About this RNA: The family of this 353-nucleotide part of an RNA from Cyanobacterium aponinum is "Bacterial small subunit ribosomal RNA". A search with the family's covariance model found it, with a score of 1533 bits. The literature on the family includes a 2002 paper in BMC Bioinformatics by Cannone et al., "The comparative RNA web (CRW) site: an online database of comparative sequence and structure information for ribosomal, intron, and other RNAs". The base pairs follow the family's consensus structure, which is taken from published work. The source organism's lineage runs through Bacteria, Oscillatoriophycideae, Geminocystaceae, Cyanobacterium and Cyanobacterium aponinum.
RNA sequence: GGCGUAAAGAGUCCGUAGGUGGCACUUCAAGUCUGCUUUCAAAGACCGAAGCUCAACUUCGGAAAGGGAGUGGAAACUGAAGAGCUAGAGUAUAGUAGGGGUAGAGGGAAUUCCUAGUGUAGCGGUGAAAUGCGUAGAGAUUAGGAAGAACACCAGUGGCGAAGGCGCUCUACUGGGCAUAUACUGACACUGAGGGACGAAAGCUAGGGGAGCGAAAGGGAUUAGAUACCCCUGUAGUCCUAGCGGUAAACGAUGGAUACUAGGCGUAGUGCUGUUAGAAGGACUGUGCCGAAGCUAACGCGUUAAGUAUCCCGCCUGGGGAGUACGCACGCAAGUGUGAAACUCAAAGGAAU
Numbered sequence: 001g002g003c004g005u006a007a008a009g010a011g012u013c014c015g016u017a018g019g020u021g022g023c024a025c026u027u028c029a030a031g032u033c034u035g036c037u038u039u040c041a042a043a044g045a046c047c048g049a050a051g052c053u054c055a056a057c058u059u060c061g062g063a064a065a066g067g068g069a070g071u072g073g074a075a076a077c078u079g080a081a082g083a084g085c086u087a088g089a090g091u092a093u094a095g096u097a098g099g100g101g102u103a104g105a106g107g108g109a110a111u112u113c114c115u116a117g118u119g120u121a122g123c124g125g126u127g128a129a130a131u132g133c134g135u136a137g138a139g140a141u142u143a144g145g146a147a148g149a150a151c152a153c154c155a156g157u158g159g160c161g162a163a164g165g166c167g168c169u170c171u172a173c174u175g176g177g178c179a180u181a182u183a184c185u186g187a188c189a190c191u192g193a194g195g196g197a198c199g200a201a202a203g204c205u206a207g208g209g210g211a212g213c214g215a216a217a218g219g220g221a222u223u224a225g226a227u228a229c230c231c232c233u234g235u236a237g238u239c240c241u242a243g244c245g246g247u248a249a250a251c252g253a254u255g256g257a258u259a260c261u262a263g264g265c266g267u268a269g270u271g272c273u274g275u276u277a278g279a280a281g282g283a284c285u286g287u288g289c290c291g292a293a294g295c296u297a298a299c300g301c302g303u304u305a306a307g308u309a310u311c312c313c314g315c316c317u318g319g320g321g322a323g324u325a326c327g328c329a330c331g332c333a334a335g336u337g338u339g340a341a342a343c344u345c346a347a348a349g350g351a352a353u
Stems, first nucleotide, its partner, number of pairs: 001316003009313001011198004016192001018191003022085002025082004030078002032074009046062006089185003095178002100174007107151001111147008122133003159166002203244006212238002217233004255312006263290008272281002294301002318345003327338004